This 183-nucleotide RNA sequence from Alkaliphilus peptidifermentans belongs to the Rfam family "Lysine riboswitch aptamer". From the family's description: Riboswitches are metabolite binding domains within certain messenger RNAs that serve as precision sensors for their corresponding targets. It scores 118 bits against the family's covariance model.
[Rfam]
RNA sequence: UUAAUAGAUAGAGGUGCACCGAAGAAGAGUAUAUGUUAGGUGUUAAGAGGGGAAGUCCUCAAUACUAGCAUAAAAAGGCUGACGUGCCGAAAUAGUCAAUUUACUUUCAAUUUGACUGUUGGGUGUCUGGUUAAUAACUAGGCAACUGUCAUAGAAUACAUUCUAUGGAGUGCUAUUUGUUGA
Numbered sequence: 001u002u003a004a005u006a007g008a009u010a011g012a013g014g015u016g017c018a019c020c021g022a023a024g025a026a027g028a029g030u031a032u033a034u035g036u037u038a039g040g041u042g043u044u045a046a047g048a049g050g051g052g053a054a055g056u057c058c059u060c061a062a063u064a065c066u067a068g069c070a071u072a073a074a075a076a077g078g079c080u081g082a083c084g085u086g087c088c089g090a091a092a093u094a095g096u097c098a099a100u101u102u103a104c105u106u107u108c109a110a111u112u113u114g115a116c117u118g119u120u121g122g123g124u125g126u127c128u129g130g131u132u133a134a135u136a137a138c139u140a141g142g143c144a145a146c147u148g149u150c151a152u153a154g155a156a157u158a159c160a161u162u163c164u165a166u167g168g169a170g171u172g173c174u175a176u177u178u179g180u181u182g183a
Base pairs, nucleotide, nucleotide: 006178007177008176009175010174011173016087017086018085019084023080024079032072033071034070035069036068037067038066039065091120092119093118094117095116096115097114098113099112101110102109121147122146124144125143126142127141128140129139130138131137149168150167151166152165153164154163155162